The record is a 254-nucleotide RNA sequence from Capsella rubella, which matches "RNase MRP" in Rfam. The organism belongs to Capsella, within Eukaryota. Rfam describes the family as follows. RNase MRP is an enzymatically active ribonucleoprotein with two distinct roles in eukaryotes. In mitochondria it plays a direct role in the initiation of mitochondrial DNA replication.
RNA sequence: AAUGUCAUUGGAGGUGAAUGGGUCACAAGGGCUAUUUAAGUCUCGACCCAGGAAAGUCCCCGGGCAACUCUCCGCAGAGAUGCGGCCUCGGAAACGAGAGAGUCAUACGGUGGAGAGAUUCCCAUUAGCUGAGACGCGUGUGUGGAGCUUCGUGGUCUCUCCGCCGAUGAUAUCAUUGCCGAUUGUUUCACGACUCAGAUAUUCACUUUGUCCUUGUCGGAUUUAACUUAACGGGGCUUAUGUUACAGUGACAU
Numbered sequence: 001a002a003u004g005u006c007a008u009u010g011g012a013g014g015u016g017a018a019u020g021g022g023u024c025a026c027a028a029g030g031g032c033u034a035u036u037u038a039a040g041u042c043u044c045g046a047c048c049c050a051g052g053a054a055a056g057u058c059c060c061c062g063g064g065c066a067a068c069u070c071u072c073c074g075c076a077g078a079g080a081u082g083c084g085g086c087c088u089c090g091g092a093a094a095c096g097a098g099a100g101a102g103u104c105a106u107a108c109g110g111u112g113g114a115g116a117g118a119u120u121c122c123c124a125u126u127a128g129c130u131g132a133g134a135c136g137c138g139u140g141u142g143u144g145g146a147g148c149u150u151c152g153u154g155g156u157c158u159c160u161c162c163g164c165c166g167a168u169g170a171u172a173u174c175a176u177u178g179c180c181g182a183u184u185g186u187u188u189c190a191c192g193a194c195u196c197a198g199a200u201a202u203u204c205a206c207u208u209u210g211u212c213c214u215u216g217u218c219g220g221a222u223u224u225a226a227c228u229u230a231a232c233g234g235g236g237c238u239u240a241u242g243u244u245a246c247a248g249u250g251a252c253a254u
Stems, first nucleotide, its partner, number of pairs: 002254009012208006020049004029044003033040001054239003058236004073084004087098004102171003108166010127149003136143002210222004